[Rfam]
RNA sequence: CGAUACCAGGUCAAAAAGGUCAUGAAUACGAUCCAAGCUCGCUUGCAGGAGAAUUCUAGAACUUGGAACCCGCCUAAAACAUGAGUAAGAAGCCAUGUUCGGAAGAUGAAUGAGCGGAUUACGAAUGUGUUCAGAAUGGCGAGAGAGCAAAGCACGUAGCAAUUCGGUAUCA
Dot-bracket structure: .((((((.(((......(.((..((((....((((((....))))..))...))))..)).).....))).....((.((((..((((...(((((.............))).))...))))..)))).))..((((.((....(.((...)).)...)).)))))))))).

Source information: This 172-nucleotide RNA sequence belongs to the Rfam family "Clostridiales-1 RNA". Rfam classes the family as a small RNA. It is one of the family's seed sequences. Pairs were carried over by alignment from the consensus structure, which is taken from published work.